[Rfam]
RNA sequence: GGUGCUUUCCGUUAGGCGAGGCUCCUAUACGAACAAUGCUGCUGCUCAGAAACAUCCAGAGAUGCCAAUGAGUCAACCACGCUUACCGAUAAGGUUUGUGUUAAUGUAGCUGAAGAAUUCUUCUAGGCGUAUAGUGCUAAAACUUCACGAUUGGGAUGCAAU
Numbered sequence: 001g002g003u004g005c006u007u008u009c010c011g012u013u014a015g016g017c018g019a020g021g022c023u024c025c026u027a028u029a030c031g032a033a034c035a036a037u038g039c040u041g042c043u044g045c046u047c048a049g050a051a052a053c054a055u056c057c058a059g060a061g062a063u064g065c066c067a068a069u070g071a072g073u074c075a076a077c078c079a080c081g082c083u084u085a086c087c088g089a090u091a092a093g094g095u096u097u098g099u100g101u102u103a104a105u106g107u108a109g110c111u112g113a114a115g116a117a118u119u120c121u122u123c124u125a126g127g128c129g130u131a132u133a134g135u136g137c138u139a140a141a142a143c144u145u146c147a148c149g150a151u152u153g154g155g156a157u158g159c160a161a162u
Stems, first nucleotide, its partner, number of pairs: 005158001007156004011148002013092001015144002020138003025134007038110005044073005053064004079101004085095003112123003

This 162-nucleotide RNA sequence from Lacticaseibacillus manihotivorans belongs to the Rfam family "M-box riboswitch aptamer (ykoK leader)". About the family: M-box riboswitch, also know as ykoK leader is described as a metaloregulatory RNA that sense divalent metals and function as a genetic control element of genes related to divalent metal transport in bacteria. The base pairs follow the family's consensus structure.